The family of this 114-nucleotide RNA from Clostridium sp. CAG:632 is "drum RNA". The source organism's lineage runs through Bacteria, Bacillati, Clostridia, Eubacteriales and Clostridium. Firmicutes, Bacteroidetes (1 example), Proteobacteria (2 examples), Spirochaetes (2 examples).
[Rfam]
RNA sequence: AAGCGCAGAAGUAAGGUGUUGUGCCAGAAAGCAGUGCCUUAUGAGCUUUAUACGGGUUUGACAUUUACCACAAUCUGGCUAGAACGGUUAGACGUUUGAAAGAAAAUGUCAAAG
Numbered sequence: 001a002a003g004c005g006c007a008g009a010a011g012u013a014a015g016g017u018g019u020u021g022u023g024c025c026a027g028a029a030a031g032c033a034g035u036g037c038c039u040u041a042u043g044a045g046c047u048u049u050a051u052a053c054g055g056g057u058u059u060g061a062c063a064u065u066u067a068c069c070a071c072a073a074u075c076u077g078g079c080u081a082g083a084a085c086g087g088u089u090a091g092a093c094g095u096u097u098g099a100a101a102g103a104a105a106a107u108g109u110c111a112a113a114g
Base pairs, nucleotide, nucleotide: 001048002047003046004045011042012041013040014039015038016037017036018035019034020033021032022031024078025077026076027075061109062108063107082097083096084095085094

The family's RNA type in Rfam is small RNA.